[Rfam]
RNA sequence: GAGCUAUGAAGAUUUUAAAGGAAUCUGAGGUUCCACUGAAGACAUAAGAUCCAACUCUGAGCUCGCUGCC
Numbered sequence: 001g002a003g004c005u006a007u008g009a010a011g012a013u014u015u016u017a018a019a020g021g022a023a024u025c026u027g028a029g030g031u032u033c034c035a036c037u038g039a040a041g042a043c044a045u046a047a048g049a050u051c052c053a054a055c056u057c058u059g060a061g062c063u064c065g066c067u068g069c070c
Stems, first nucleotide, its partner, number of pairs: 001064004
Dot-bracket structure: ((((........................................................))))......
This 70-nucleotide RNA from Pedionomus torquatus belongs to the Rfam family "Small nucleolar RNA SNORD19". NCBI's taxonomy places the organism under Eukaryota, Bilateria, Sarcopterygii, Dinosauria, Pedionomus. The family's RNA type in Rfam is C/D-box small nucleolar RNA. The family is grouped with related families in Rfam's "SNORD19 clan". A reference for the family is Huttenhofer et al. (2001), "RNomics: an experimental approach that identifies 201 candidates for novel, small, non-messenger RNAs in mouse", EMBO J.